[Rfam]
RNA sequence: GCCAGGAAGAGGAAGAAUGAGAUGGCCUGAGAGCAGUGGGAAUGGGAACAUGGAGGAAAGCCUAACUUGUCUGUAUUCUCCUCCAACAAUGGAGGUUGAAUUUGGUUUGGGCUUUCCUAGUGCUUCCCAUUCCUAUUACUCUUGAGCACUCCUUCCUCCUUUUUGCUUAC
Numbered sequence: 001g002c003c004a005g006g007a008a009g010a011g012g013a014a015g016a017a018u019g020a021g022a023u024g025g026c027c028u029g030a031g032a033g034c035a036g037u038g039g040g041a042a043u044g045g046g047a048a049c050a051u052g053g054a055g056g057a058a059a060g061c062c063u064a065a066c067u068u069g070u071c072u073g074u075a076u077u078c079u080c081c082u083c084c085a086a087c088a089a090u091g092g093a094g095g096u097u098g099a100a101u102u103u104g105g106u107u108u109g110g111g112c113u114u115u116c117c118u119a120g121u122g123c124u125u126c127c128c129a130u131u132c133c134u135a136u137u138a139c140u141c142u143u144g145a146g147c148a149c150u151c152c153u154u155c156c157u158c159c160u161u162u163u164u165g166c167u168u169a170c
Stems, first nucleotide, its partner, number of pairs: 009161005015155003021151002026146001028144006035137001037135011049122003053118001055117007
RNA: MIR2118 microRNA precursor family